[Rfam]
RNA: mir-10 microRNA precursor family
Organism: Acipenser ruthenus
RNA sequence: CUAUAUAUACCCUGUAGAUCCGAAUUUGUGUGAACAGAAAAGGGGUCACAAAUUCGGAUCUAAGGGAGUAUGUAGU
Numbered sequence: 001c002u003a004u005a006u007a008u009a010c011c012c013u014g015u016a017g018a019u020c021c022g023a024a025u026u027u028g029u030g031u032g033a034a035c036a037g038a039a040a041a042g043g044g045g046u047c048a049c050a051a052a053u054u055c056g057g058a059u060c061u062a063a064g065g066g067a068g069u070a071u072g073u074a075g076u
Stems, first nucleotide, its partner, number of pairs: 002074006010066003016061015